Rfam assigns this 47-nucleotide RNA from Lentisphaera araneosa to the family "Acido-Lenti-1 RNA". Lineage of the source: Bacteria > Lentisphaeria > Lentisphaerales > Lentisphaeraceae > Lentisphaera araneosa.

[Rfam]
RNA sequence: CCCAAGGCUCACGCCAUUAGGCUAUAUUAUGUCAUGCCGUCGGCAUU
Numbered sequence: 001c002c003c004a005a006g007g008c009u010c011a012c013g014c015c016a017u018u019a020g021g022c023u024a025u026a027u028u029a030u031g032u033c034a035u036g037c038c039g040u041c042g043g044c045a046u047u
Stems, first nucleotide, its partner, number of pairs: 001021002004018002006015003034046005